Rfam assigns this 169-nucleotide RNA sequence from Spirodela intermedia to the family "small nucleolar RNA snoR143".
The family has 3 seed sequences and 660 matches in Rfam 15.1.
Gene Ontology terms of the family: RNA processing and nucleolus.
The base pairs follow the family's consensus structure, which was predicted with RNAalifold.
For this family Rfam cites "Mining small RNA sequencing data: a new approach to identify small nucleolar RNAs in Arabidopsis" (Chen and Wu, Nucleic Acids Res, 2009).
RNA sequence: UUGCACCUGUAAAACAGUCUAAGGCCAUUCCAGGAUAGUAGUGAUGGUCUUCUGAUAUGGUGCACAAAGAAAAUUGCUGUUUGUACAGCAGCGGCCAGACAACCGUAGGGAUGGAUCCACAGAUAAAUGGUUGCAAGUUCCGUCUGUCUACUGUUUCCAUCAUACAUAU
Numbered sequence: 001u002u003g004c005a006c007c008u009g010u011a012a013a014a015c016a017g018u019c020u021a022a023g024g025c026c027a028u029u030c031c032a033g034g035a036u037a038g039u040a041g042u043g044a045u046g047g048u049c050u051u052c053u054g055a056u057a058u059g060g061u062g063c064a065c066a067a068a069g070a071a072a073a074u075u076g077c078u079g080u081u082u083g084u085a086c087a088g089c090a091g092c093g094g095c096c097a098g099a100c101a102a103c104c105g106u107a108g109g110g111a112u113g114g115a116u117c118c119a120c121a122g123a124u125a126a127a128u129g130g131u132u133g134c135a136a137g138u139u140c141c142g143u144c145u146g147u148c149u150a151c152u153g154u155u156u157c158c159a160u161c162a163u164a165c166a167u168a169u
Stems, first nucleotide, its partner, number of pairs: 002064005009056001015054003021051009031041001108163001110161006126145001128142003